[Rfam]
Source information
The record is a 344-nucleotide RNA sequence from Sphingomonas sp. SKA58, which matches "Alphaproteobacteria transfer-messenger RNA" in Rfam. It is annotated as a non-coding RNA gene. The organism belongs to Sphingomonas, within Bacteria. The match comes from Rfam's covariance-model search (215 bits). Rfam's curators write: Bacterial tmRNA, also known as 10Sa RNA or SsrA, is named for its dual tRNA and mRNA-like properties.

RNA sequence: GCGCUUGAAGAAUCAUUUGCUUGCGCCCAUAUGCACAGCUGCCGGGUUCGCCUGGCUAUGGUGAUAAAGUGUGUCGUAUAAUAGACGCAGCGGACCCGGGGGCAGUACCCGGCGGCUCCACCACCUCCCUCGCUUCGCGGGGAAGAUGACGGGGCCGAACUAGGAUCGACGUGUGUUGAAAAGCGAUGCUUUUACCCGGCCCGUGUACGCCGUUAAACUGUGCAAAACUCACAAGUGCCAACGAUAACGAAGCACUCGCCAUUGCAGCGUAAUUGAGGGCCUCACGGCCUGACAUUACUCUAAAAUAGCGCGGUUGAACCCACCGGGCAACAGAAGGGAAUUCA
Numbered sequence: 001g002c003g004c005u006u007g008a009a010g011a012a013u014c015a016u017u018u019g020c021u022u023g024c025g026c027c028c029a030u031a032u033g034c035a036c037a038g039c040u041g042c043c044g045g046g047u048u049c050g051c052c053u054g055g056c057u058a059u060g061g062u063g064a065u066a067a068a069g070u071g072u073g074u075c076g077u078a079u080a081a082u083a084g085a086c087g088c089a090g091c092g093g094a095c096c097c098g099g100g101g102g103c104a105g106u107a108c109c110c111g112g113c114g115g116c117u118c119c120a121c122c123a124c125c126u127c128c129c130u131c132g133c134u135u136c137g138c139g140g141g142g143a144a145g146a147u148g149a150c151g152g153g154g155c156c157g158a159a160c161u162a163g164g165a166u167c168g169a170c171g172u173g174u175g176u177u178g179a180a181a182a183g184c185g186a187u188g189c190u191u192u193u194a195c196c197c198g199g200c201c202c203g204u205g206u207a208c209g210c211c212g213u214u215a216a217a218c219u220g221u222g223c224a225a226a227a228c229u230c231a232c233a234a235g236u237g238c239c240a241a242c243g244a245u246a247a248c249g250a251a252g253c254a255c256u257c258g259c260c261a262u263u264g265c266a267g268c269g270u271a272a273u274u275g276a277g278g279g280c281c282u283c284a285c286g287g288c289c290u291g292a293c294a295u296u297a298c299u300c301u302a303a304a305a306u307a308g309c310g311c312g313g314u315u316g317a318a319c320c321c322a323c324c325g326g327g328c329a330a331c332a333g334a335a336g337g338g339a340a341u342u343c344a
Stems, first nucleotide, its partner, number of pairs: 041056005060196005071189007086175003090172003096112005113157007197212004203223002311325004316343003321338001